[Rfam]
RNA sequence: UUUGCACCGGCGAAUCAGUACGACCAGCUCCCGCUGAACUCCCCCAGGACCGGAAGGUAGCAAGGGCAGGCGGUUGUAGCGGUGCGAUACUGGUUCGCUUUUUU
Numbered sequence: 001u002u003u004g005c006a007c008c009g010g011c012g013a014a015u016c017a018g019u020a021c022g023a024c025c026a027g028c029u030c031c032c033g034c035u036g037a038a039c040u041c042c043c044c045c046a047g048g049a050c051c052g053g054a055a056g057g058u059a060g061c062a063a064g065g066g067c068a069g070g071c072g073g074u075u076g077u078a079g080c081g082g083u084g085c086g087a088u089a090c091u092g093g094u095u096c097g098c099u100u101u102u103u104u
Stems, first nucleotide, its partner, number of pairs: 009099012021086002023083002
RNA: Bacteroidales small SRP
Organism: Hymenobacter sp. CRA2